RNA: TPP riboswitch aptamer (THI element)
RNA sequence: GCGAAGACAAGGGGGUGCCCGCCACAGCAAGGGGGCUGAGAUCAUACCCUUUGAACCUGAUGCGGGUAAUGCCGUCGCAGGGAUUUGUGCGUCGACCCCGC
Numbered sequence: 001g002c003g004a005a006g007a008c009a010a011g012g013g014g015g016u017g018c019c020c021g022c023c024a025c026a027g028c029a030a031g032g033g034g035g036c037u038g039a040g041a042u043c044a045u046a047c048c049c050u051u052u053g054a055a056c057c058u059g060a061u062g063c064g065g066g067u068a069a070u071g072c073c074g075u076c077g078c079a080g081g082g083a084u085u086u087g088u089g090c091g092u093c094g095a096c097c098c099c100g101c
Base pairs, nucleotide, nucleotide: 007088008087009086010085011050012049013048014047016044017036018035019034020033056081057080058079059078062075063074064073065072